[Rfam]
RNA sequence: GCCUCUUUACUACUUCAGGGUUAUUACAGGGAGUGGCAACCAUGUUUUUAGACGAAGUUGUAUUUGCCGGGUUGCUGACCGUCGGUCUGAUGAUCACUUUUUUUGCGGGCCUCUAUUACUUCCUUCGUAAAGACAUGGAUAAACAUCCAUAGGGUUGCCACUAACCCAAGCCGAAUAAGGCGGAAUCAGAGGUCCCGUGGGUUGUCAGGUUCUCACGGGGCUUCUGGUUCCGCCUUACCUUUUU
Numbered sequence: 001g002c003c004u005c006u007u008u009a010c011u012a013c014u015u016c017a018g019g020g021u022u023a024u025u026a027c028a029g030g031g032a033g034u035g036g037c038a039a040c041c042a043u044g045u046u047u048u049u050a051g052a053c054g055a056a057g058u059u060g061u062a063u064u065u066g067c068c069g070g071g072u073u074g075c076u077g078a079c080c081g082u083c084g085g086u087c088u089g090a091u092g093a094u095c096a097c098u099u100u101u102u103u104u105g106c107g108g109g110c111c112u113c114u115a116u117u118a119c120u121u122c123c124u125u126c127g128u129a130a131a132g133a134c135a136u137g138g139a140u141a142a143a144c145a146u147c148c149a150u151a152g153g154g155u156u157g158c159c160a161c162u163a164a165c166c167c168a169a170g171c172c173g174a175a176u177a178a179g180g181c182g183g184a185a186u187c188a189g190a191g192g193u194c195c196c197g198u199g200g201g202u203u204g205u206c207a208g209g210u211u212c213u214c215a216c217g218g219g220g221c222u223u224c225u226g227g228u229u230c231c232g233c234c235u236u237a238c239c240u241u242u243u244u
Stems, first nucleotide, its partner, number of pairs: 010108002013105001057067002084095004165170001178235024
Shown here is a 244-nucleotide RNA from Aestuariirhabdus litorea, a member of the family "PhrS". On this family, see Sonnleitner et al., Microbiology 2008: "Detection of small RNAs in Pseudomonas aeruginosa by RNomics and structure-based bioinformatic tools". Its family is annotated with quorum sensing in the Gene Ontology.